This 86-nucleotide RNA from Neobacillus massiliamazoniensis belongs to the Rfam family "c-di-GMP-I riboswitch aptamer". About the family: GEMM was predicted in a large-scale screen for bacterial structured RNA regulatory elements. Pairs were carried over by alignment from the consensus structure, which is taken from published work. The match comes from Rfam's covariance-model search (64 bits).
RNA sequence: AGUAAACAAGGGCAAAAUCACUGAAAAGUGAUGACGCAAAGCUAUAGGGGCCUCCGCCGUUAAGGCAAGGUCAGCCAGCUACCAUC
Number, nucleotide and partner (000 for none) at each position: 001a000002g000003u000004a000005a000006a000007c000008a000009a000010g000011g000012g037013c036014a000015a000016a000017a032018u031019c030020a029021c028022u027023g000024a000025a000026a000027a022028g021029u020030g019031a018032u017033g000034a000035c000036g013037c012038a000039a000040a080041g079042c078043u077044a000045u000046a000047g076048g075049g072050g071051c070052c000053u000054c000055c000056g066057c065058c064059g000060u000061u000062a000063a000064g058065g057066c056067a000068a000069g000070g051071u050072c049073a000074g000075c048076c047077a043078g042079c041080u040081a000082c000083c000084a000085u000086c000